[Rfam]
This 92-nucleotide RNA from Branchiostoma floridae belongs to the Rfam family "mir-2060 microRNA precursor family". The source organism's lineage runs through Eukaryota, Eumetazoa, Chordata, Branchiostomatidae and Branchiostoma. A search with the family's covariance model found it, with a score of 74 bits.
RNA sequence: GUUUCUUUGUGUGUGGAUGGUGUUCAGCAUCAGAGACAGAUAUGUUUACCUGUGUGUGGAUUGUGUUCAGCACCAGGCAGGGAUAGCUGGUU
Numbered sequence: 001g002u003u004u005c006u007u008u009g010u011g012u013g014u015g016g017a018u019g020g021u022g023u024u025c026a027g028c029a030u031c032a033g034a035g036a037c038a039g040a041u042a043u044g045u046u047u048a049c050c051u052g053u054g055u056g057u058g059g060a061u062u063g064u065g066u067u068c069a070g071c072a073c074c075a076g077g078c079a080g081g082g083a084u085a086g087c088u089g090g091u092u
Base pairs, nucleotide, nucleotide: 004083005082006081007080008079009078010077018075019074020073021072022071023070024069026067027066028065029064030063032061034055036053037052038051039050041048042047